Source information
The record is a 265-nucleotide sequence from Hydrogenispora ethanolica, which matches "Bacterial large signal recognition particle RNA" in Rfam.
RNA sequence: CCAUGCUAGACGGGGAGGUAGCGGUGCCUUGUAACCUGCAACCCGCUAUAGCAGGGUUGAAUUCCAAGCGGAAGGCCGGUCUUCGUGAGUCCGGCCGGAUGAAGUGGUGUUGAGGAUUGGGUCCUGCGCAACGGAGACCUAUGAACCCCGUCAGGUCCGGAAGGAAGCAGCGGUAAGUAGGACCCUUCGUGUGCCGCGGGGUUGCCUGGUCGGAGCCGGCUGAUUCGGCGCGUUCGGGGGGAUACAGUCAAGGCUUGGUGCAUGG
Numbered sequence: 001c002c003a004u005g006c007u008a009g010a011c012g013g014g015g016a017g018g019u020a021g022c023g024g025u026g027c028c029u030u031g032u033a034a035c036c037u038g039c040a041a042c043c044c045g046c047u048a049u050a051g052c053a054g055g056g057u058u059g060a061a062u063u064c065c066a067a068g069c070g071g072a073a074g075g076c077c078g079g080u081c082u083u084c085g086u087g088a089g090u091c092c093g094g095c096c097g098g099a100u101g102a103a104g105u106g107g108u109g110u111u112g113a114g115g116a117u118u119g120g121g122u123c124c125u126g127c128g129c130a131a132c133g134g135a136g137a138c139c140u141a142u143g144a145a146c147c148c149c150g151u152c153a154g155g156u157c158c159g160g161a162a163g164g165a166a167g168c169a170g171c172g173g174u175a176a177g178u179a180g181g182a183c184c185c186u187u188c189g190u191g192u193g194c195c196g197c198g199g200g201g202u203u204g205c206c207u208g209g210u211c212g213g214a215g216c217c218g219g220c221u222g223a224u225u226c227g228g229c230g231c232g233u234u235c236g237g238g239g240g241g242a243u244a245c246a247g248u249c250a251a252g253g254c255u256u257g258g259u260g261c262a263u264g265g
Stems, first nucleotide, its partner, number of pairs: 001265006009058003012030004017025001019023001035055005064258006074249003078245001079243006086236003092230002096227005104220002106217003115211008123200006129191002132189005138181005148173004156165003
Rfam's curators write: The signal recognition particle (SRP) is a universally conserved ribonucleoprotein involved in the co-translational targeting of proteins to membranes. NCBI's taxonomy places the organism under Bacteria, Bacillati, Bacillota, Hydrogenispora.